[Rfam]
RNA sequence: AGCGGACCUCGGUGUCGAGUCCGCUCUUCCCACCCGGUACCUGAUACGGCCGGUGUGG
Number, nucleotide and partner (000 for none) at each position: 001a025002g024003c023004g022005g021006a020007c019008c000009u017010c000011g000012g000013u000014g000015u000016c000017g009018a000019g007020u006021c005022c004023g003024c002025u001026c000027u000028u000029c000030c058031c057032a056033c000034c053035c052036g051037g050038u049039a000040c000041c000042u000043g000044a000045u000046a000047c000048g000049g038050c037051c036052g035053g034054u000055g000056u032057g031058g030
Record summary:
Shown here is a 58-nucleotide sequence from Hyalangium minutum, a member of the family "L17-Actino-Proteobacteria ribosomal protein leader". Rfam classes the family as a cis-regulatory leader. For this family Rfam cites "Discovery of 20 novel ribosomal leader candidates in bacteria and archaea" (Eckert and Weinberg, BMC Microbiol, 2020). The family's consensus secondary structure is taken from published work.